[Rfam]
RNA sequence: GUAUGCCUUCAGGGAUUGGUGUAAUUCCAUACCGGCGGUAUAGCCCGCGAGCCUAUGGCUGAUCUGGUUAAAUUCCAGAGCCGACAGUACAGUCUGGAUGAAAGAAGGAGUUA
Numbered sequence: 001g002u003a004u005g006c007c008u009u010c011a012g013g014g015a016u017u018g019g020u021g022u023a024a025u026u027c028c029a030u031a032c033c034g035g036c037g038g039u040a041u042a043g044c045c046c047g048c049g050a051g052c053c054u055a056u057g058g059c060u061g062a063u064c065u066g067g068u069u070a071a072a073u074u075c076c077a078g079a080g081c082c083g084a085c086a087g088u089a090c091a092g093u094c095u096g097g098a099u100g101a102a103a104g105a106a107g108g109a110g111u112u113a
Stems, first nucleotide, its partner, number of pairs: 003111002006108005017029003031093002033083002035048004043081002051059003063079005085096003

FMN riboswitch aptamer (RFN element): a 113-nucleotide RNA from Thermoanaerobacterium sp. RBIITD. The organism belongs to Thermoanaerobacterium, within Bacteria. The base pairs follow the family's consensus structure, which is taken from published work. Its family is annotated with FMN binding in the Gene Ontology.